[Rfam]
RNA sequence: UUGACAGCACUUGGAGACUAAAGUCCUGACUUUAUCCAUCGAACAGGUUCAGCACGGGUAGCAGCAGUGCAAGAUUCUCUCCACACUGCCCUGCCAAUGUGCCUCAACUCUGACCUGCAGGGACCACCUCUAGGGGUGAGAAGUGUAGUUCAGUCUCCAUGCUUCUUCAGUCCUUGGAUUCU
Numbered sequence: 001u002u003g004a005c006a007g008c009a010c011u012u013g014g015a016g017a018c019u020a021a022a023g024u025c026c027u028g029a030c031u032u033u034a035u036c037c038a039u040c041g042a043a044c045a046g047g048u049u050c051a052g053c054a055c056g057g058g059u060a061g062c063a064g065c066a067g068u069g070c071a072a073g074a075u076u077c078u079c080u081c082c083a084c085a086c087u088g089c090c091c092u093g094c095c096a097a098u099g100u101g102c103c104u105c106a107a108c109u110c111u112g113a114c115c116u117g118c119a120g121g122g123a124c125c126a127c128c129u130c131u132a133g134g135g136g137u138g139a140g141a142a143g144u145g146u147a148g149u150u151c152a153g154u155c156u157c158c159a160u161g162c163u164u165c166u167u168c169a170g171u172c173c174u175u176g177g178a179u180u181c182u
Stems, first nucleotide, its partner, number of pairs: 002169003007162001012159008021150002025145001027143001031140006039112001041110001052102005064089004115133003119129003
RNA: TUC338
Organism: Eubucco bourcierii